[Rfam]
Nucleotides: 080
Base pairs, nucleotide, nucleotide: 002079003078004077005076006075007074008073009072010071011070012069013068014067015066016065018063019062020061021060022059023058024057
Number, partner (000 for none) and nucleotide at each position: 001000u002079c003078c004077a005076c006075u007074g008073a009072g010071c011070c012069a013068u014067c015066u016065c017000c018063c019062c020061a021060g022059c023058u024057c025000u026000a027000g028000a029000a030000a031000u032000a033000u034000a035000u036000u037000u038000u039000a040000u041000a042000u043000a044000a045000a046000a047000u048000a049000a050000u051000a052000g053000a054000u055000g056000a057024g058023g059022g060021c061020u062019g063018g064000a065016g066015a067014g068013a069012u070011g071010g072009c073008u074007c075006a076005g077004u078003g079002g080000u
The family of this 80-nucleotide sequence from Octodon degus is "mir-3473 microRNA precursor family". The organism belongs to Octodon, within Eukaryota.